[Rfam]
RNA sequence: AGCAGUUCUCAGGUGAUGCACCUCAGAAUCGGGCUCCCUCCUCUCUGGUUCUGUGGUGUGUCACCUGAGAACUGCU
Numbered sequence: 001a002g003c004a005g006u007u008c009u010c011a012g013g014u015g016a017u018g019c020a021c022c023u024c025a026g027a028a029u030c031g032g033g034c035u036c037c038c039u040c041c042u043c044u045c046u047g048g049u050u051c052u053g054u055g056g057u058g059u060g061u062c063a064c065c066u067g068a069g070a071a072c073u074g075c076u
Stems, first nucleotide, its partner, number of pairs: 002075002005072013019058004025052009
This 76-nucleotide RNA sequence from Pipistrellus kuhlii belongs to the Rfam family "mir-9223 microRNA precursor family". The family has 9 seed sequences and 14,641 matches in Rfam 15.1. Taxonomically the source falls in Pipistrellus (Eukaryota, Vertebrata, Theria, Vespertilionidae).